[Rfam]
RNA sequence: GUUUCAAUGUGGGGGGACCAGUACGGCUGGUUGAGAUCGUAUCCGAUAAGAUACAGACCCUUGGAACCUGAUCUGGUUUAGACCAGCGUAGGGAACAUAUGUGAACACGAA
Numbered sequence: 001g002u003u004u005c006a007a008u009g010u011g012g013g014g015g016g017a018c019c020a021g022u023a024c025g026g027c028u029g030g031u032u033g034a035g036a037u038c039g040u041a042u043c044c045g046a047u048a049a050g051a052u053a054c055a056g057a058c059c060c061u062u063g064g065a066a067c068c069u070g071a072u073c074u075g076g077u078u079u080a081g082a083c084c085a086g087c088g089u090a091g092g093g094a095a096c097a098u099a100u101g102u103g104a105a106c107a108c109g110a111a
Base pairs, nucleotide, nucleotide: 007098008097009096010095011061012060013059014058017031018030019029020028021027039054040053041052042051067092068091069090070089073086074085075084076083
Dot-bracket structure: ......((((((((..(((((.....))))).......((((........))))...)))).....((((..((((......))))..))))..)))).............